This 151-nucleotide RNA from Gossypium arboreum belongs to the Rfam family "U4 spliceosomal RNA". The source organism's lineage runs through Eukaryota, Viridiplantae, Mesangiospermae, eudicotyledons and Gossypium.
[Rfam]
RNA sequence: AUCUUUGCGCUUGGGGCAAUGACGCAGCUAGUGAGGUUUUAACCGAGGCGCAUCUAUUGCAGGUUGAAAACCAUUUCCAGACCCCCUCUUAGUCCUUGGUUCUACCCUGGCCUUUGAGAAUUUCAGGAUGGGUUCCCUUCGAGGUAGAACC
Numbered sequence: 001a002u003c004u005u006u007g008c009g010c011u012u013g014g015g016g017c018a019a020u021g022a023c024g025c026a027g028c029u030a031g032u033g034a035g036g037u038u039u040u041a042a043c044c045g046a047g048g049c050g051c052a053u054c055u056a057u058u059g060c061a062g063g064u065u066g067a068a069a070a071c072c073a074u075u076u077c078c079a080g081a082c083c084c085c086c087u088c089u090u091a092g093u094c095c096u097u098g099g100u101u102c103u104a105c106c107c108u109g110g111c112c113u114u115u116g117a118g119a120a121u122u123u124c125a126g127g128a129u130g131g132g133u134u135c136c137c138u139u140c141g142a143g144g145u146a147g148a149a150c151c
Base pairs, nucleotide, nucleotide: 021054022053024051025050027049028048029047035044036043037042086118087117088116091113092112094110095109098106099105131151132150133149134148
It is annotated as a spliceosomal small nuclear RNA. Pairs were carried over by alignment from the consensus structure, which is taken from published work. Rfam describes the family as follows. U4 small nuclear RNA (U4 snRNA) is a component of the major U2-dependent spliceosome. The family has 177 seed sequences and 32,178 matches in Rfam 15.1.